[Rfam]
RNA sequence: CCGCGGGCGCGCUCCUGACCGCGGGUUCCGAGUUGGGCGUGGAGGUUACCUGGGACUGUGCGGUUGGGACGGCGCCCGUGG
Numbered sequence: 001c002c003g004c005g006g007g008c009g010c011g012c013u014c015c016u017g018a019c020c021g022c023g024g025g026u027u028c029c030g031a032g033u034u035g036g037g038c039g040u041g042g043a044g045g046u047u048a049c050c051u052g053g054g055a056c057u058g059u060g061c062g063g064u065u066g067g068g069a070c071g072g073c074g075c076c077c078g079u080g081g
Base pairs, nucleotide, nucleotide: 004078005077006076007075008074009073010072013069014068015067016066017065018064019063020062021061022060023059025056026055027054028053029052030051032049033048

This 81-nucleotide RNA sequence from Simplexvirus humanalpha1 belongs to the Rfam family "mir-H3 microRNA precursor family". The family has 2 seed sequences and 4 matches in Rfam 15.1. Gene Ontology terms of the family: miRNA-mediated post-transcriptional gene silencing and RISC complex.